[Rfam]
RNA sequence: CUGCGAAUUUUCUCGCUCUCCUGGUAUUUCUGUGAUCAGGGGAGGCUAGAUAUUCGCUAUAUUAAAACUAUGCAUUGUGUCCUCCAGGACUAGAUUGUUGCUCUAGUACUGGUUUUUUAAAUGCUAGUAACAAGU
Numbered sequence: 001c002u003g004c005g006a007a008u009u010u011u012c013u014c015g016c017u018c019u020c021c022u023g024g025u026a027u028u029u030c031u032g033u034g035a036u037c038a039g040g041g042g043a044g045g046c047u048a049g050a051u052a053u054u055c056g057c058u059a060u061a062u063u064a065a066a067a068c069u070a071u072g073c074a075u076u077g078u079g080u081c082c083u084c085c086a087g088g089a090c091u092a093g094a095u096u097g098u099u100g101c102u103c104u105a106g107u108a109c110u111g112g113u114u115u116u117u118u119a120a121a122u123g124c125u126a127g128u129a130a131c132a133a134g135u
Stems, first nucleotide, its partner, number of pairs: 003057003016044010067128004072124002084112004089107005